[Rfam]
RNA sequence: UAACAAGGACGACCCUGUUAUUUUUUACUCAUCGAGGACGACCUC
Numbered sequence: 001u002a003a004c005a006a007g008g009a010c011g012a013c014c015c016u017g018u019u020a021u022u023u024u025u026u027a028c029u030c031a032u033c034g035a036g037g038a039c040g041a042c043c044u045c
Stems, first nucleotide, its partner, number of pairs: 001020005007014002034045004

Shown here is a 45-nucleotide sequence from Legionella israelensis, a member of the family "Guanidine-II riboswitch aptamer (mini-ykkC)". The source organism's lineage runs through Bacteria, Pseudomonadati, Gammaproteobacteria, Legionellales and Legionella. Pairs were carried over by alignment from the consensus structure, which is taken from published work. On this family, see Sherlock et al., Biochemistry 2017: "Biochemical Validation of a Second Guanidine Riboswitch Class in Bacteria".